Notes
The family of this 85-nucleotide RNA sequence from Desulfobaculum bizertense is "ZMP/ZTP riboswitch aptamer (pfl RNA motif)".

RNA sequence: AGAGCCUCACGUGACUGGCGAGAAAAUGUGGGAUUACCACAGGGAAGCGUGAGAGCAACAAUAGCCGCUCGCCUGGGCUGUAUCC
Numbered sequence: 001a002g003a004g005c006c007u008c009a010c011g012u013g014a015c016u017g018g019c020g021a022g023a024a025a026a027u028g029u030g031g032g033a034u035u036a037c038c039a040c041a042g043g044g045a046a047g048c049g050u051g052a053g054a055g056c057a058a059c060a061a062u063a064g065c066c067g068c069u070c071g072c073c074u075g076g077g078c079u080g081u082a083u084c085c
Base pairs, nucleotide, nucleotide: 006053007052008051009050010049011048012047015044016043017073018072019071020070021069028040029039030038031037062080063079064078065077066076

NCBI's taxonomy places the organism under Bacteria, Pseudomonadati, Desulfovibrionia, Desulfovibrionaceae, Desulfobaculum bizertense.